[Rfam]
RNA sequence: AAAAUGCAAGGGGUGCAGGGGAGGUUGUGCUCCCUGUCUCUUAAGGAGGGUGCUCAGACACGUAGUGUCGUCGAAGGGAAC
Numbered sequence: 001a002a003a004a005u006g007c008a009a010g011g012g013g014u015g016c017a018g019g020g021g022a023g024g025u026u027g028u029g030c031u032c033c034c035u036g037u038c039u040c041u042u043a044a045g046g047a048g049g050g051u052g053c054u055c056a057g058a059c060a061c062g063u064a065g066u067g068u069c070g071u072c073g074a075a076g077g078g079a080a081c
Base pairs, nucleotide, nucleotide: 015037016036017035018034019033020032021031057069058068059067060066

Record summary:
Rfam assigns this 81-nucleotide RNA from Clostridium intestinale to the family "Clostridiales-2 RNA". The family has 44 seed sequences and 285 matches in Rfam 15.1.